[Rfam]
RNA sequence: GAUUUCAGCUGAAAAAGCCAUCAACAACAAAGUUGUAGAACUCAUCAAGAUCUACAACUUUUAUUUUGCUCAUUUCUUCAUCCGACAAAGUGAUAGUAACAUUGUUCACAAAAUUUAUAUAUCUCUUUUAUAGUUUAUGAAACCACACGAGAGAUAUAUAAAAUUUGUGAAUAAUGUUAGUACCACUUUAUCGGAUGAACAAAUGACUAAAAUAAAAGUUGUAGAUCUUGAUGAGUUCUACAACUUUGUUGUUGAUGAUUUUUUCAGCUGAAGUC
Numbered sequence: 001g002a003u004u005u006c007a008g009c010u011g012a013a014a015a016a017g018c019c020a021u022c023a024a025c026a027a028c029a030a031a032g033u034u035g036u037a038g039a040a041c042u043c044a045u046c047a048a049g050a051u052c053u054a055c056a057a058c059u060u061u062u063a064u065u066u067u068g069c070u071c072a073u074u075u076c077u078u079c080a081u082c083c084g085a086c087a088a089a090g091u092g093a094u095a096g097u098a099a100c101a102u103u104g105u106u107c108a109c110a111a112a113a114u115u116u117a118u119a120u121a122u123c124u125c126u127u128u129u130a131u132a133g134u135u136u137a138u139g140a141a142a143c144c145a146c147a148c149g150a151g152a153g154a155u156a157u158a159u160a161a162a163a164u165u166u167g168u169g170a171a172u173a174a175u176g177u178u179a180g181u182a183c184c185a186c187u188u189u190a191u192c193g194g195a196u197g198a199a200c201a202a203a204u205g206a207c208u209a210a211a212a213u214a215a216a217a218g219u220u221g222u223a224g225a226u227c228u229u230g231a232u233g234a235g236u237u238c239u240a241c242a243a244c245u246u247u248g249u250u251g252u253u254g255a256u257g258a259u260u261u262u263u264u265c266a267g268c269u270g271a272a273g274u275c
Stems, first nucleotide, its partner, number of pairs: 014262004019257003023253002026250002030246013044232010055221013070206006077199005083193003087189006094182002097179003101175012114162002117159006131145001133143004
Overview
The family of this 275-nucleotide RNA from Miscanthus lutarioriparius is "MIR821 microRNA precursor family". On this family, see Luo et al., FEBS Lett 2006: "Rice embryogenic calli express a unique set of microRNAs, suggesting regulatory roles of microRNAs in plant post-embryogenic development". A search with the family's covariance model found it, with a score of 273 bits. The source organism's lineage runs through Eukaryota, Embryophyta, Liliopsida, Poaceae and Miscanthus.